A member of the RNA family "MIR403 microRNA precursor family" from Striga hermonthica, 136 nucleotides long. On this family, see Mica et al., BMC Genomics 2009: "High throughput approaches reveal splicing of primary microRNA transcripts and tissue specific expression of mature microRNAs in Vitis vinifera". Taxonomically the source falls in Striga (Eukaryota, Streptophyta, Euphyllophyta, Mesangiospermae).
RNA sequence: GCAUAUUUCAUGUUUGUGCGUGAAUCUAACACGAGAGAUCUUGCACGCACUGCUGACUGCUGUUGGGGGAAGGGAAGAUCCUCUUCUAUCUUUGUUUCAAUCGUGUUAGAUUCACGCACAAACUCGUGAUAUGCCU
Numbered sequence: 001g002c003a004u005a006u007u008u009c010a011u012g013u014u015u016g017u018g019c020g021u022g023a024a025u026c027u028a029a030c031a032c033g034a035g036a037g038a039u040c041u042u043g044c045a046c047g048c049a050c051u052g053c054u055g056a057c058u059g060c061u062g063u064u065g066g067g068g069g070a071a072g073g074g075a076a077g078a079u080c081c082u083c084u085u086c087u088a089u090c091u092u093u094g095u096u097u098c099a100a101u102c103g104u105g106u107u108a109g110a111u112u113c114a115c116g117c118a119c120a121a122a123c124u125c126g127u128g129a130u131a132u133g134c135c136u
Stems, first nucleotide, its partner, number of pairs: 001134003005130003012123015028107003032103002043093001045091001